[Rfam]
This 110-nucleotide sequence from Paucibacter sp. KCTC 42545 belongs to the Rfam family "Glycine riboswitch aptamer". It scores 56 bits against the family's covariance model.
RNA sequence: GCGUUCCUCACUGGAGAGAGAUGGGUCUUUGAGCCCAUCCACUGAAGGGGCAAGCUGCGGGCGAUAUGCCGGCGGCCAAUCUCUCAAGUAAAGCGGACAGCGAGGGCAUA
Numbered sequence: 001g002c003g004u005u006c007c008u009c010a011c012u013g014g015a016g017a018g019a020g021a022u023g024g025g026u027c028u029u030u031g032a033g034c035c036c037a038u039c040c041a042c043u044g045a046a047g048g049g050g051c052a053a054g055c056u057g058c059g060g061g062c063g064a065u066a067u068g069c070c071g072g073c074g075g076c077c078a079a080u081c082u083c084u085c086a087a088g089u090a091a092a093g094c095g096g097a098c099a100g101c102g103a104g105g106g107c108a109u110a
Stems, first nucleotide, its partner, number of pairs: 006105004011100003020039007041089003044085002048083003054076005